Rfam assigns this 87-nucleotide RNA to the family "chrB-a RNA". The family's RNA type in Rfam is cis-regulatory element. Pairs were carried over by alignment from the consensus structure, which is taken from published work. The sequence is in the family's curated seed alignment.

RNA sequence: GCCAAGGGGACAUCCGCGAUUGCCCCGUGAGGCUUCGGCCGAAGGAUCGCGUCCGACACUCCACAUGGAUGGAGAGGACGUGCCAUG
Numbered sequence: 001g002c003c004a005a006g007g008g009g010a011c012a013u014c015c016g017c018g019a020u021u022g023c024c025c026c027g028u029g030a031g032g033c034u035u036c037g038g039c040c041g042a043a044g045g046a047u048c049g050c051g052u053c054c055g056a057c058a059c060u061c062c063a064c065a066u067g068g069a070u071g072g073a074g075a076g077g078a079c080g081u082g083c084c085a086u087g
Stems, first nucleotide, its partner, number of pairs: 006026004049081006
Dot-bracket structure: .....((((.............))))......................((((((.....................))))))......